This 301-nucleotide sequence from Brugia malayi belongs to the Rfam family "Metazoan signal recognition particle RNA". For this family Rfam cites "Towards the structure of the mammalian signal recognition particle" (Wild et al., Curr Opin Struct Biol, 2002). The family's consensus secondary structure is taken from published work.
[Rfam]
RNA sequence: GCCGGGCGUUGUGGCGAGCGCUUGUAAUCCAAGUGACUGGGAGGCAUGUGGUGGCGGAUGGAGUGAGAGGAGGAGUCCUGGCUGAUGCUUGGCGGUGGCGACCGAGCGUCCAGGCCAAGCGUGGCGUCGACAAGGUGUCGAGAUAGGAGUGUCAUCGGUACCUGGUCGCAUAAUGAGGGGCGUACGGCUCAGGGCCGAAAGGCAGCAGGCAAAAGUCCCCGCGUCAUGACAGUGGCCGGAUAGCGCUUGCGAGUCGUCGGUAUUAGUCAGCCUUGUCAAUACCUCCAGACCCAUCGCUUUU
Numbered sequence: 001g002c003c004g005g006g007c008g009u010u011g012u013g014g015c016g017a018g019c020g021c022u023u024g025u026a027a028u029c030c031a032a033g034u035g036a037c038u039g040g041g042a043g044g045c046a047u048g049u050g051g052u053g054g055c056g057g058a059u060g061g062a063g064u065g066a067g068a069g070g071a072g073g074a075g076u077c078c079u080g081g082c083u084g085a086u087g088c089u090u091g092g093c094g095g096u097g098g099c100g101a102c103c104g105a106g107c108g109u110c111c112a113g114g115c116c117a118a119g120c121g122u123g124g125c126g127u128c129g130a131c132a133a134g135g136u137g138u139c140g141a142g143a144u145a146g147g148a149g150u151g152u153c154a155u156c157g158g159u160a161c162c163u164g165g166u167c168g169c170a171u172a173a174u175g176a177g178g179g180g181c182g183u184a185c186g187g188c189u190c191a192g193g194g195c196c197g198a199a200a201g202g203c204a205g206c207a208g209g210c211a212a213a214a215g216u217c218c219c220c221g222c223g224u225c226a227u228g229a230c231a232g233u234g235g236c237c238g239g240a241u242a243g244c245g246c247u248u249g250c251g252a253g254u255c256g257u258c259g260g261u262a263u264u265a266g267u268c269a270g271c272c273u274u275g276u277c278a279a280u281a282c283c284u285c286c287a288g289a290c291c292c293a294u295c296g297c298u299u300u301u
Base pairs, nucleotide, nucleotide: 001045002044003043004023005022006021007020008019009018010017028042029041030040049296050295051294052293053292054291059287060286061285062284063283067277068276070274071273072272073271078270079269080268081267082266083265084264085263089260090259091258092257093256094255095254096253103249104248105247106246107245108244109243110239111238113237114236115235116234117233119230121227122226123225124224125223126222127221128168129167130166131165133163134162135161136160137159138158139157140156141155143152144151145150169175170174177219178218179217180216181215187210188209189208194203195202196201

By type it is a non-coding RNA gene. Rfam's curators put it in the seed alignment. The signal recognition particle (SRP) is a universally conserved ribonucleoprotein. It is involved in the co-translational targeting of proteins to membranes. The eukaryotic SRP consists of a 300-nucleotide 7S RNA and six proteins: SRPs 72, 68, 54, 19, 14, and 9. Archaeal SRP consists of a 7S RNA and homologues of the eukaryotic SRP19 and SRP54 proteins.